[Rfam]
Nucleotides: 071
Stems, first nucleotide, its partner, number of pairs: 001070007010024003026042005047063005
Number, partner (000 for none) and nucleotide at each position: 001070a002069g003068u004067u005066a006065c007064g008000u009000g010024g011023c012022c013000g014000a015000g016000g017000g018000g019000g020000a021000a022012g023011g024010c025000g026042a027041a028040g029039g030038u031000a032000c033000g034000c035000a036000a037000g038030a039029c040028c041027u042026u043000c044000u045000a046000c047063g048062g049061u050060g051059g052000u053000u054000c055000g056000a057000a058000u059051c060050c061049a062048c063047c064007c065006g066005u067004a068003a069002c070001u071000g
Shown here is a 71-nucleotide sequence from Pseudoflavitalea sp. G-6-1-2, a member of the family "tRNA". Gene Ontology term of the family: triplet codon-amino acid adaptor activity. The match comes from Rfam's covariance-model search (50 bits).